[Rfam]
RNA sequence: CGUAAUUCCGAGGGGGGCAUCUUGACGAUGCUGAGAUGGCGGUGAGCCGGACCCUUGAACCUGAUCCGGGUCAUGCCGGCGUAGGAACGGAAAUAGGCGUCGAC
Dot-bracket structure: .....(((((((((..(((((.....)))))......(((.....)))...))))....((((..((((......))))..))))..)))))............
RNA: TPP riboswitch aptamer (THI element)